[Rfam]
RNA: sodF sRNA
Nucleotides: 090
Stems, first nucleotide, its partner, number of pairs: 002044002005042007012034004018028002052090016
Number, partner (000 for none) and nucleotide at each position: 001000a002044c003043g004000a005042c006041c007040u008039g009038c010037u011036c012034g013033u014032g015031a016000u017000c018028g019027u020000c021000u022000u023000c024000u025000c026000a027019a028018c029000c030000u031015u032014c033013a034012c035000c036011g037010g038009g039008c040007a041006g042005g043003c044002g045000g046000a047000u048000g049000a050000a051000g052090g053089a054088a055087g056086g057085c058084c059083c060082c061081c062080c063079g064078u065077g066076a067075g068000g069000a070000c071000a072000u073000g074000g075067c076066u077065c078064a079063c080062g081061g082060g083059g084058g085057g086056c087055c088054u089053u090052c